[Rfam]
RNA sequence: GGGAAACGAGGGUGGCGCUGGGAAGACGAGCCCCCCCAAGUCCUCCUCCAGCAAAUAGGCUCA
Numbered sequence: 001g002g003g004a005a006a007c008g009a010g011g012g013u014g015g016c017g018c019u020g021g022g023a024a025g026a027c028g029a030g031c032c033c034c035c036c037c038a039a040g041u042c043c044u045c046c047u048c049c050a051g052c053a054a055a056u057a058g059g060c061u062c063a
Stems, first nucleotide, its partner, number of pairs: 014044002017041003021037002028062005
RNA: Ma3 gene ribosomal frameshift signal